[Rfam]
RNA: Flavo-1 RNA
Organism: Lutibacter sp. HS1-25
RNA sequence: AUUUAACUGCGUUAGUGAUUGCAGCGGCAUCCUUUAUUACAAUGCAACAUAGUGGAAUUGUAAAAAAGAUAUAGCGGAAAGCACGACCCCUU
Numbered sequence: 001a002u003u004u005a006a007c008u009g010c011g012u013u014a015g016u017g018a019u020u021g022c023a024g025c026g027g028c029a030u031c032c033u034u035u036a037u038u039a040c041a042a043u044g045c046a047a048c049a050u051a052g053u054g055g056a057a058u059u060g061u062a063a064a065a066a067a068g069a070u071a072u073a074g075c076g077g078a079a080a081g082c083a084c085g086a087c088c089c090c091u092u
Stems, first nucleotide, its partner, number of pairs: 015084003019080002024075002029070003035065001037063006